[Rfam]
RNA sequence: AGAUCUGUUCAUAGAUCGUGAACAGGGUAAAUUAAAAAAAGCUCACCGAGA
Numbered sequence: 001a002g003a004u005c006u007g008u009u010c011a012u013a014g015a016u017c018g019u020g021a022a023c024a025g026g027g028u029a030a031a032u033u034a035a036a037a038a039a040a041g042c043u044c045a046c047c048g049a050g051a
Stems, first nucleotide, its partner, number of pairs: 006024006014044002017041001
RNA: 6A RNA